Rfam assigns this 101-nucleotide RNA from Aquilegia coerulea to the family "Small nucleolar RNA snR60/Z15/Z230/Z193/J17".

RNA sequence: AUGAGUCAAAUGAUGAUUAAUUGCAUAGUUCAGAUGAGAUUGAAAAUCAAUCUCUGAUUAUUCUAUAGAAAUUAGUCUUUCGCUCCUAUCUGAUGACUCUU
Numbered sequence: 001a002u003g004a005g006u007c008a009a010a011u012g013a014u015g016a017u018u019a020a021u022u023g024c025a026u027a028g029u030u031c032a033g034a035u036g037a038g039a040u041u042g043a044a045a046a047u048c049a050a051u052c053u054c055u056g057a058u059u060a061u062u063c064u065a066u067a068g069a070a071a072u073u074a075g076u077c078u079u080u081c082g083c084u085c086c087u088a089u090c091u092g093a094u095g096a097c098u099c100u101u
Stems, first nucleotide, its partner, number of pairs: 004098005
The family has 23 seed sequences and 3,592 matches in Rfam 15.1.
Its Rfam clan is "SNORD77 clan".
Lineage of the source: Eukaryota > Tracheophyta > Mesangiospermae > Ranunculales > Aquilegia.
Its family is annotated with RNA processing and nucleolus in the Gene Ontology.
Rfam classes the family as a C/D-box small nucleolar RNA.